[Rfam]
RNA: Purine riboswitch aptamer
Organism: Pontibacillus chungwhensis
Nucleotides: 102
Stems, first nucleotide, its partner, number of pairs: 018088008029049001031047005058078007
Number, partner (000 for none) and nucleotide at each position: 001000a002000u003000a004000a005000a006000a007000u008000a009000a010000a011000a012000c013000a014000c015000g016000a017000a018088c019087c020086g021085u022084c023083g024082u025081a026000u027000a028000a029049u030000a031047u032046u033045g034044g035043g036000g037000a038000u039000a040000g041000g042000g043035c044034c045033c046032a047031a048000g049029a050000g051000u052000u053000u054000c055000u056000a057000c058078c059077g060076a061075g062074u063073u064072a065000c066000c067000g068000u069000a070000a071000a072064u073063g074062a075061c076060u077059c078058g079000a080000c081025u082024a083023c084022g085021a086020u087019g088018g089000a090000g091000a092000a093000u094000g095000u096000g097000a098000u099000u100000c101000g102000g